Rfam assigns this 76-nucleotide RNA from Strigamia maritima to the family "mir-130 microRNA precursor family".
It scores 47 bits against the family's covariance model.
Rfam links the family to the GO terms miRNA-mediated post-transcriptional gene silencing and RISC complex.
The family's consensus secondary structure was predicted with PFOLD.
RNA sequence: UUCAAAUGAUACUUCUUCUAACAUUGCUGCACUAUUGGCAACAGUGCUGCAAUGUUAGAAGAAGUAUCAUUUGGAA
Numbered sequence: 001u002u003c004a005a006a007u008g009a010u011a012c013u014u015c016u017u018c019u020a021a022c023a024u025u026g027c028u029g030c031a032c033u034a035u036u037g038g039c040a041a042c043a044g045u046g047c048u049g050c051a052a053u054g055u056u057a058g059a060a061g062a063a064g065u066a067u068c069a070u071u072u073g074g075a076a
Stems, first nucleotide, its partner, number of pairs: 001076003005071006012064008022054006029047002